This 56-nucleotide RNA sequence belongs to the Rfam family "Glutamine riboswitch aptamer (glnA leader)". For this family Rfam cites "Bacterial aptamers that selectively bind glutamine" (Ames and Breaker, RNA Biol, 2011). Rfam links the family to the GO term glutamine binding.

RNA sequence: AUCGUUCAACCUAUUUUCAUAGGUCGGAAGUAAGCCAUAAGCUGAAGGAACGCUCA
Numbered sequence: 001a002u003c004g005u006u007c008a009a010c011c012u013a014u015u016u017u018c019a020u021a022g023g024u025c026g027g028a029a030g031u032a033a034g035c036c037a038u039a040a041g042c043u044g045a046a047g048g049a050a051c052g053c054u055c056a
Base pairs, nucleotide, nucleotide: 003052004051005050006049007048009024010023011022012021013020027053033043034042035041